Shown here is a 384-nucleotide RNA from Pseudoclavibacter sp. CFCC 13611, a member of the family "Bacterial RNase P class A". Gene Ontology terms of the family: ribonuclease P activity, tRNA processing and dimeric ribonuclease P complex. NCBI's taxonomy places the organism under Bacteria, Actinomycetes, Micrococcales, Microbacteriaceae, Pseudoclavibacter.

Nucleotides: 384
Stems, first nucleotide, its partner, number of pairs: 001380010011369001012319007020041002023038006046367003050364005055227004062255004067223005072086005087101001088099004102218002107216002109212002124157002126153006133146005165183006185207001186205008231276004241267005246260005283302008
Number, partner (000 for none) and nucleotide at each position: 001380c002379g003378g004377g005376a006375u007374g008373c009372u010371c011369a012319u013318g014317c015316g016315a017314u018313c019000g020041c021040g022000u023038g024037c025036c026035a027034g028033a029000g030000a031000g032000a033028u034027c035026u036025g037024g038023u039000c040021c041020g042000a043000g044000g045000a046367a047366c048365g049000u050364c051363c052362g053361g054360g055227c056226u057225c058224c059000a060000c061000a062255g063254g064253g065252c066000a067223c068222g069221a070220u071219g072086g073085u074084g075083g076082g077000u078000a079000a080000c081000g082076c083075c084074c085073a086072c087101c088099c089098g090097g091096g092000g093000c094000a095000a096091c097090c098089c099088g100000a101087g102218a103217g104000c105000a106000a107216g108215u109212g110211c111000a112000g113000c114000a115000g116000a117000g118000a119000g120000c121000a122000g123000a124157c125156c126153g127152c128151c129150a130149g131148c132000g133146g134145c135144g136143a137142c138000c139000u140000c141000g142137g143136u144135c145134g146133c147000g148131g149130c150129u151128g152127g153126u154000a155000a156125g157124g158000g159000u160000g161000a162000a163000a164000c165183g166182g167181u168180g169179g170178u171000g172000u173000a174000a175000g176000a177000g178170a179169c180168c181167a182166c183165c184000a185207g186205u187204g188203g189202g190201c191200a192199u193198g194000g195000u196000g197000a198193c199192a200191u201190g202189c203188c204187c205186a206000g207185c208000u209000g210000g211110g212109u213000a214000a215108a216107c217103c218102u219071c220070a221069u222068c223067g224058g225057g226056a227055g228000c229000a230000a231276g232275a233274c234273c235000a236000a237000g238000c239000a240000u241267g242266g243265a244264g245263g246260u247259g248258g249257g250256c251000u252065g253064c254063c255062c256250g257249c258248c259247u260246g261000u262000a263245c264244c265243u266242c267241c268000g269000g270000g271000u272000a273234g274233g275232u276231u277000g278000c279000u280000g281000g282000a283302g284301c285300g286299u287298g288297u289296c290295a291000g292000c293000a294000a295290u296289g297288g298287c299286a300285c301284g302283c303000c304000g305000a306000g307000a308000g309000a310000g311000a312000u313018g314017a315016u316015c317014g318013c319012a320000c321000c322000c323000g324000g325000u326000c327000a328000c329000a330000g331000c332000a333000c334000c335000u336000u337000g338000c339000g340000u341000g342000u343000u344000g345000c346000g347000a348000c349000c350000g351000g352000c353000g354000a355000c356000a357000g358000a359000a360054c361053c362052c363051g364050g365048c366047g367046u368000a369011u370000c371010g372009a373008g374007c375006a376005u377004c378003c379002c380001g381000u382000c383000c384000a
Ribonuclease P (RNase P) is a ubiquitous endoribonuclease, found in archaea, bacteria and eukarya as well as chloroplasts and mitochondria. Its best characterised activity is the generation of mature 5'-ends of tRNAs by cleaving the 5'-leader elements of precursor-tRNAs.